[Rfam]
RNA sequence: CUUCGCUGCUCACCACAGCGGAGAAAGUGAUUGGGAAACAGAGACUUAUCGCUCUAGUGCAUGACUCGUUUCCCGCUCCAAA
Numbered sequence: 001c002u003u004c005g006c007u008g009c010u011c012a013c014c015a016c017a018g019c020g021g022a023g024a025a026a027g028u029g030a031u032u033g034g035g036a037a038a039c040a041g042a043g044a045c046u047u048a049u050c051g052c053u054c055u056a057g058u059g060c061a062u063g064a065c066u067c068g069u070u071u072c073c074c075g076c077u078c079c080a081a082a
Stems, first nucleotide, its partner, number of pairs: 001023008029078002032075008043065001045063001050059003
The record is an 82-nucleotide RNA sequence from Pseudomonas aeruginosa, which matches "Proteobacterial sRNA sX8" in Rfam. A reference for the family is Schmidtke et al. (2011), "Genome-wide transcriptome analysis of the plant pathogen Xanthomonas identifies sRNAs with putative virulence functions", Nucleic Acids Res. The family's consensus secondary structure was predicted with CMfinder.